[Rfam]
RNA sequence: AUUAAUUAUUAUUUAUCCUUAAUUUAUAUGCACAGUAAAUUGUUGAUAUCUAAUAGUUAAUAAUCCACACGUGGUAAGAGGUCAUAGUUAGGUUCACUGUGAUGUGCAACUCUUAUAAUGAGCAACCAAUCCUAAGCAAGUGUAGUGUUAACAUGGUGCUUGACAGUCUGAUACUAACUGAACAAUAAGUAUUA
Numbered sequence: 001a002u003u004a005a006u007u008a009u010u011a012u013u014u015a016u017c018c019u020u021a022a023u024u025u026a027u028a029u030g031c032a033c034a035g036u037a038a039a040u041u042g043u044u045g046a047u048a049u050c051u052a053a054u055a056g057u058u059a060a061u062a063a064u065c066c067a068c069a070c071g072u073g074g075u076a077a078g079a080g081g082u083c084a085u086a087g088u089u090a091g092g093u094u095c096a097c098u099g100u101g102a103u104g105u106g107c108a109a110c111u112c113u114u115a116u117a118a119u120g121a122g123c124a125a126c127c128a129a130u131c132c133u134a135a136g137c138a139a140g141u142g143u144a145g146u147g148u149u150a151a152c153a154u155g156g157u158g159c160u161u162g163a164c165a166g167u168c169u170g171a172u173a174c175u176a177a178c179u180g181a182a183c184a185a186u187a188a189g190u191a192u193u194a
Stems, first nucleotide, its partner, number of pairs: 001061011014048003022040005077113004082102006131147001133145001137162005169194007
RNA: RAGATH-7 RNA